[Rfam]
RNA: Small nucleolar RNA snoR99
RNA sequence: GUGCCUAAGGGAUGAACAAGCCCCCAUAGUUACAUCCAUUUCGUUCACUUUGUUGGCUAAUAACUCUAUUUUUAGCUGAUCAUUAAGGAUGGGAAAUCU
Numbered sequence: 001g002u003g004c005c006u007a008a009g010g011g012a013u014g015a016a017c018a019a020g021c022c023c024c025c026a027u028a029g030u031u032a033c034a035u036c037c038a039u040u041u042c043g044u045u046c047a048c049u050u051u052g053u054u055g056g057c058u059a060a061u062a063a064c065u066c067u068a069u070u071u072u073u074a075g076c077u078g079a080u081c082a083u084u085a086a087g088g089a090u091g092g093g094a095a096a097u098c099u
Stems, first nucleotide, its partner, number of pairs: 035093006052080008